[Rfam]
RNA: Eukaryotic small subunit ribosomal RNA, nucleotides 613 to 1141
Organism: Trichoplax sp. H2
RNA sequence: CAGUUAAAAAGCUCGUAGUUGGAUUUCGGAAUGAAUCUGACGGUCCGCCUAACGGUGAGUACUGGAUGAUUUGUUCUUCUUCUUGAGGGCUGCAUAUGCUCUUAAUUGAGUGUGUGUAGGACUUGAGACUUUUACUGUGAAAAAAUUAGAGUGUUCAAAGCAGGCCAUCGCUUGAAUACCUGAGCAUGGAAUAAUAAAAUAGGACUUUGGUUCUAUUUUGUUGGUUUUCGGAACCGAAGUAAUGAUUAAUAGGGACAGUUGGGGGCAUUCGUACUUCAUUGUCAGAGGUGAAAUUCUUGGAUUUAUGAAAGACGAACAACUGCGAAAGCAUUUGCCAAGAAUGUUUUCAUUAAUCAAGAACGAAAGUUAGAGGUUCGAAGACGAUCAGAUACCGUUGUAGUUCUAACCAUAAACGAUGCCGUCUAGGGAUCAGUGGGUGUUAUUUUAUGACUCCAUUGGCACCUUAAGGGAAACCAAAGAUUUUGGGUUCCGGGGGAAGUAUGGUUGCAAAGCUGAAACUUAAAGGAAU
Numbered sequence: 001c002a003g004u005u006a007a008a009a010a011g012c013u014c015g016u017a018g019u020u021g022g023a024u025u026u027c028g029g030a031a032u033g034a035a036u037c038u039g040a041c042g043g044u045c046c047g048c049c050u051a052a053c054g055g056u057g058a059g060u061a062c063u064g065g066a067u068g069a070u071u072u073g074u075u076c077u078u079c080u081u082c083u084u085g086a087g088g089g090c091u092g093c094a095u096a097u098g099c100u101c102u103u104a105a106u107u108g109a110g111u112g113u114g115u116g117u118a119g120g121a122c123u124u125g126a127g128a129c130u131u132u133u134a135c136u137g138u139g140a141a142a143a144a145a146u147u148a149g150a151g152u153g154u155u156c157a158a159a160g161c162a163g164g165c166c167a168u169c170g171c172u173u174g175a176a177u178a179c180c181u182g183a184g185c186a187u188g189g190a191a192u193a194a195u196a197a198a199a200u201a202g203g204a205c206u207u208u209g210g211u212u213c214u215a216u217u218u219u220g221u222u223g224g225u226u227u228u229c230g231g232a233a234c235c236g237a238a239g240u241a242a243u244g245a246u247u248a249a250u251a252g253g254g255a256c257a258g259u260u261g262g263g264g265g266c267a268u269u270c271g272u273a274c275u276u277c278a279u280u281g282u283c284a285g286a287g288g289u290g291a292a293a294u295u296c297u298u299g300g301a302u303u304u305a306u307g308a309a310a311g312a313c314g315a316a317c318a319a320c321u322g323c324g325a326a327a328g329c330a331u332u333u334g335c336c337a338a339g340a341a342u343g344u345u346u347u348c349a350u351u352a353a354u355c356a357a358g359a360a361c362g363a364a365a366g367u368u369a370g371a372g373g374u375u376c377g378a379a380g381a382c383g384a385u386c387a388g389a390u391a392c393c394g395u396u397g398u399a400g401u402u403c404u405a406a407c408c409a410u411a412a413a414c415g416a417u418g419c420c421g422u423c424u425a426g427g428g429a430u431c432a433g434u435g436g437g438u439g440u441u442a443u444u445u446u447a448u449g450a451c452u453c454c455a456u457u458g459g460c461a462c463c464u465u466a467a468g469g470g471a472a473a474c475c476a477a478a479g480a481u482u483u484u485g486g487g488u489u490c491c492g493g494g495g496g497a498a499g500u501a502u503g504g505u506u507g508c509a510a511a512g513c514u515g516a517a518a519c520u521u522a523a524a525g526g527a528a529u
Stems, first nucleotide, its partner, number of pairs: 001492001003490001009489001011361001013359002018354003252348004256343002259340002264336004270314002275309005281303001285296003322329002366407006376400001380396004418488003421481003425464003430459008439451003468475002494521003503514004